[Rfam]
RNA: U1 spliceosomal RNA
RNA sequence: CUACUUAACUGGCAGGGAGACACCAUGAUCACGUAGGUGGUUUUCCCAGGGUGAGGGCUCCGCCAUUGCACUUUGGGCUGUGCUGACCCCUGCGAUUUCCCCAAGUGCGGGAAACUCGACUGCAUAAUUGGUGGUAGUGGGGGACUGCGUUCGCACUCUCCCCUG
Numbered sequence: 001c002u003a004c005u006u007a008a009c010u011g012g013c014a015g016g017g018a019g020a021c022a023c024c025a026u027g028a029u030c031a032c033g034u035a036g037g038u039g040g041u042u043u044u045c046c047c048a049g050g051g052u053g054a055g056g057g058c059u060c061c062g063c064c065a066u067u068g069c070a071c072u073u074u075g076g077g078c079u080g081u082g083c084u085g086a087c088c089c090c091u092g093c094g095a096u097u098u099c100c101c102c103a104a105g106u107g108c109g110g111g112a113a114a115c116u117c118g119a120c121u122g123c124a125u126a127a128u129u130g131g132u133g134g135u136a137g138u139g140g141g142g143g144a145c146u147g148c149g150u151u152c153g154c155a156c157u158c159u160c161c162c163c164u165g
Base pairs, nucleotide, nucleotide: 012123013122014121015120016046017045018044019043020042022041023040024039025038026037048091049090050089051088053087056084057083058082060080062078063076064075093118094117095116096114097113098112100110101109139164140163141162142161143160144159147156149154